[Rfam]
RNA sequence: CGGUUGAGAGAGCUGCCUUCAGCAGUUCGUUGGACCUUGGUGUUCACUCGGCCG
Numbered sequence: 001c002g003g004u005u006g007a008g009a010g011a012g013c014u015g016c017c018u019u020c021a022g023c024a025g026u027u028c029g030u031u032g033g034a035c036c037u038u039g040g041u042g043u044u045c046a047c048u049c050g051g052c053c054g
Base pairs, nucleotide, nucleotide: 001054002053003052004051005050006049007048008047010028011027012026013025014024015023016022031046032045033044034043035042
RNA: DUF3800-VI RNA